Nucleotides: 095
Stems, first nucleotide, its partner, number of pairs: 001094007010025003027065005071087005
Number, partner (000 for none) and nucleotide at each position: 001094g002093g003092u004091u005090c006089g007088g008000u009000g010025g011024u012023g013000u014000a015000g016000g017000g018000g019000u020000u021000a022000u023012c024011a025010c026000g027065u028064c029063u030062g031061u032000c033000u034000u035000a036000c037000a038000u039000g040000c041000u042000u043000u044000u045000g046000g047000a048000a049000u050000u051000g052000c053000a054000u055000u056000g057000u058000a059000u060000c061031a062030c063029a064028g065027g066000a067000g068000g069000u070000c071087c072086c073085c074084g075083g076000u077000u078000c079000g080000a081000g082000a083075c084074c085073g086072g087071g088007u089006c090005g091004a092003a093002c094001c095000a